[Rfam]
RNA sequence: CACUAUGAGCGGUUGUCGCGUAUCCUAACGGGCUUUGCGACAGCCAUUGUUUUUAACCGACCUAUAUUUAGGAGAUCAAUAGUGGCCCGUAUAGCUGGCAUCAAUGUGCCUGAU
Number, nucleotide and partner (000 for none) at each position: 001c000002a000003c000004u055005a054006u000007g052008a051009g050010c049011g048012g047013u046014u000015g000016u000017c000018g000019c000020g000021u000022a000023u000024c098025c097026u000027a000028a000029c089030g088031g087032g086033c000034u000035u000036u000037g000038c112039g111040a000041c000042a000043g000044c000045c000046a013047u012048u011049g010050u009051u008052u007053u000054u005055a004056a000057c000058c000059g000060a000061c000062c000063u000064a000065u000066a000067u000068u000069u000070a000071g000072g000073a000074g000075a000076u000077c000078a000079a000080u000081a000082g000083u000084g000085g000086c032087c031088c030089g029090u000091a000092u000093a000094g000095c000096u000097g025098g024099c000100a000101u000102c000103a000104a000105u000106g000107u000108g000109c000110c000111u039112g038113a000114u000
RNA: Alpha operon ribosome binding site